[Rfam]
RNA: Small nucleolar RNA SNORD42
Organism: Pelodiscus sinensis
RNA sequence: GUGCAAAUGAUGGAAAACAGCUUCACCUGAGUACAGUGAUGUUAUCAAAGGAACCACUGAUGCAC
Numbered sequence: 001g002u003g004c005a006a007a008u009g010a011u012g013g014a015a016a017a018c019a020g021c022u023u024c025a026c027c028u029g030a031g032u033a034c035a036g037u038g039a040u041g042u043u044a045u046c047a048a049a050g051g052a053a054c055c056a057c058u059g060a061u062g063c064a065c
Base pairs, nucleotide, nucleotide: 001065002064003063004062005061